[Rfam]
Bacterial large subunit ribosomal RNA: a 506-nucleotide part of an RNA from Azospirillum lipoferum. NCBI's taxonomy places the organism under Bacteria, Alphaproteobacteria, Azospirillaceae, Azospirillum, Azospirillum lipoferum. Pairs were carried over by alignment from the consensus structure, which is taken from published work. Rfam's curators put it in the seed alignment.
RNA sequence: GUCUGAAGGGCAUCUGGUGGAUGCCUUGGCACUGAGAGGCGAUGAAGGACGUAGCACGUUGCGAUAAGUCACGGGGAGCCGCGAGCAGGCAUUGAUCCGUGAAUUUCCGAAUGGGGAAACCCACCGCUUCGGCGGUAUCCCAUGCUGAAUCCAUAGGCAUGGGAAGCGAACCCGGCGAACUGAAACAUCUAAGUAGCCGGAGGAAAGGACAUCAACCGAGACUCCGCUAGUAGUGGCGAGCGAACGCGGACCAGGCCAGUCAUUCGAUCUACAUAACCGGAACCGUCUGGAAAGUCGGGCCAUAGCGGGUGAUAGCCCCGUACGGAUAAACCGGAUCGAAUGCUCGAGUAGGGCGGGGCACGUGAAACCCUGUCUGAACAUGGGGGGACCACCCUCCAAGCCUAAGUACUCCUCAGUGACCGAUAGUGCACCAGUACCGUGAGGGAAAGGUGAAAAGCACCCCGACAAGGGGAGUGAAACAGUUCCUGAAACCGGAUGCCUACAAG
Numbered sequence: 001g002u003c004u005g006a007a008g009g010g011c012a013u014c015u016g017g018u019g020g021a022u023g024c025c026u027u028g029g030c031a032c033u034g035a036g037a038g039g040c041g042a043u044g045a046a047g048g049a050c051g052u053a054g055c056a057c058g059u060u061g062c063g064a065u066a067a068g069u070c071a072c073g074g075g076g077a078g079c080c081g082c083g084a085g086c087a088g089g090c091a092u093u094g095a096u097c098c099g100u101g102a103a104u105u106u107c108c109g110a111a112u113g114g115g116g117a118a119a120c121c122c123a124c125c126g127c128u129u130c131g132g133c134g135g136u137a138u139c140c141c142a143u144g145c146u147g148a149a150u151c152c153a154u155a156g157g158c159a160u161g162g163g164a165a166g167c168g169a170a171c172c173c174g175g176c177g178a179a180c181u182g183a184a185a186c187a188u189c190u191a192a193g194u195a196g197c198c199g200g201a202g203g204a205a206a207g208g209a210c211a212u213c214a215a216c217c218g219a220g221a222c223u224c225c226g227c228u229a230g231u232a233g234u235g236g237c238g239a240g241c242g243a244a245c246g247c248g249g250a251c252c253a254g255g256c257c258a259g260u261c262a263u264u265c266g267a268u269c270u271a272c273a274u275a276a277c278c279g280g281a282a283c284c285g286u287c288u289g290g291a292a293a294g295u296c297g298g299g300c301c302a303u304a305g306c307g308g309g310u311g312a313u314a315g316c317c318c319c320g321u322a323c324g325g326a327u328a329a330a331c332c333g334g335a336u337c338g339a340a341u342g343c344u345c346g347a348g349u350a351g352g353g354c355g356g357g358g359c360a361c362g363u364g365a366a367a368c369c370c371u372g373u374c375u376g377a378a379c380a381u382g383g384g385g386g387g388a389c390c391a392c393c394c395u396c397c398a399a400g401c402c403u404a405a406g407u408a409c410u411c412c413u414c415a416g417u418g419a420c421c422g423a424u425a426g427u428g429c430a431c432c433a434g435u436a437c438c439g440u441g442a443g444g445g446a447a448a449g450g451u452g453a454a455a456a457g458c459a460c461c462c463c464g465a466c467a468a469g470g471g472g473a474g475u476g477a478a479a480c481a482g483u484u485c486c487u488g489a490a491a492c493c494g495g496a497u498g499c500c501u502a503c504a505a506g
Stems, first nucleotide, its partner, number of pairs: 008501010023486001024450002028421002030418007037410002039167002047108003050063003069102007078090003113122003123136005138164009171202001172200005182189002212219002222406001223250005233241002253403004265338005277325003283298003287294001301305001307319003351375008382397005437444002460472004